The record is a 108-nucleotide RNA from Malus baccata, which matches "Small nucleolar RNA snoR97" in Rfam.

RNA sequence: UUCAACUAUACCCUUAUGGGUCUGACAUAACUCAUUAAUUAGAGUGUUGUCAUCAGCUUCAUCUUGUGUAACUGGUCAAGACUGGAGUUAAACAACAACAUUACAUCU
Numbered sequence: 001u002u003c004a005a006c007u008a009u010a011c012c013c014u015u016a017u018g019g020g021u022c023u024g025a026c027a028u029a030a031c032u033c034a035u036u037a038a039u040u041a042g043a044g045u046g047u048u049g050u051c052a053u054c055a056g057c058u059u060c061a062u063c064u065u066g067u068g069u070a071a072c073u074g075g076u077c078a079a080g081a082c083u084g085g086a087g088u089u090a091a092a093c094a095a096c097a098a099c100a101u102u103a104c105a106u107c108u
Stems, first nucleotide, its partner, number of pairs: 043102007055089006062081004

For this family Rfam cites "Experimental RNomics: identification of 140 candidates for small non-messenger RNAs in the plant Arabidopsis thaliana" (Marker et al., Curr Biol, 2002).
Pairs were carried over by alignment from the consensus structure, which was predicted with WAR.
The organism belongs to Malus, within Eukaryota.